[Rfam]
RNA: pemK RNA
RNA sequence: AUAAUGAUACUUCUGUCCAGUCACAGUCCGAGCGUGAUAAAACCGUCGCAGGCAAUGAGGGCAGCUCGGUGGAAACGGAGUGGUGAGAUUCCAAUGA
Numbered sequence: 001a002u003a004a005u006g007a008u009a010c011u012u013c014u015g016u017c018c019a020g021u022c023a024c025a026g027u028c029c030g031a032g033c034g035u036g037a038u039a040a041a042a043c044c045g046u047c048g049c050a051g052g053c054a055a056u057g058a059g060g061g062c063a064g065c066u067c068g069g070u071g072g073a074a075a076c077g078g079a080g081u082g083g084u085g086a087g088a089u090u091c092c093a094a095u096g097a
Base pairs, nucleotide, nucleotide: 012094013064014063015062016061017060018059065080066079067078069076070075081093082092083091